[Rfam]
RNA sequence: AGCACCUAAAAGCGUUUUCUUGUCGGCCCAUUAAAUGCUCUUGAAAAUCGUAGAUGUGUGCCAGAGCAAAGCUCAGCUGCAAGUGUUUCUGUGUUCUUCCAUAACAGAAUUCCAUACCGCUGACUAUAAAU
Dot-bracket structure: .(((((.....((((((((..((.(..........)))....))))).)))....).))))...........(((((.....(((..(...((((.......))))..)...)))...)))))........
Description:
Rfam assigns this 131-nucleotide RNA sequence from Drosophila gunungcola to the family "Small nucleolar RNA psi28S-3316". From the family's description: psi28S-3316 is a member of the H/ACA class of snoRNA. This family is responsible for guiding the modification of uridine 3316 in Drosophila 28S rRNA to pseudouridine. The family has 33 seed sequences and 85 matches in Rfam 15.1. Its family is annotated with nucleolus and RNA processing in the Gene Ontology.